[Rfam]
RNA sequence: CAGACGCGGCAGGAGUAUUCCAAAUCCGUUUAAAGCCGGCGUGGACGAUGGCUGCGGAUGACCAAUACUCAAUCGUACCGGUGCGGCAUAUUCCCCCAAGUGUCGCAGCGGCCGAAGUGCCGAGGACCGCGCACUUCGUUUGACUCCUAAUGGUCUUGACCCGGAUUCCGUCCCGAAGCCGG
Number, nucleotide and partner (000 for none) at each position: 001c000002a000003g000004a000005c000006g000007c000008g000009g000010c000011a000012g000013g000014a000015g000016u000017a000018u000019u000020c000021c000022a000023a000024a000025u000026c000027c000028g000029u000030u000031u000032a000033a000034a000035g000036c153037c152038g151039g000040c000041g000042u000043g000044g000045a000046c000047g000048a000049u000050g000051g000052c000053u000054g000055c000056g000057g000058a000059u000060g000061a000062c000063c000064a000065a000066u000067a000068c000069u000070c000071a000072a000073u000074c000075g000076u000077a000078c111079c110080g109081g000082u107083g106084c000085g104086g000087c102088a101089u100090a000091u000092u000093c000094c000095c000096c000097c000098a000099a000100g089101u088102g087103u000104c085105g000106c083107a082108g000109c080110g079111g078112c000113c138114g137115a136116a135117g134118u133119g132120c131121c129122g000123a000124g000125g000126a000127c000128c000129g121130c000131g120132c119133a118134c117135u116136u115137c114138g113139u000140u000141u000142g000143a000144c000145u000146c000147c000148u000149a000150a000151u038152g037153g036154u000155c000156u000157u000158g000159a000160c000161c182162c181163g180164g179165a000166u177167u176168c175169c000170g000171u000172c000173c000174c000175g168176a167177a166178g000179c164180c163181g162182g161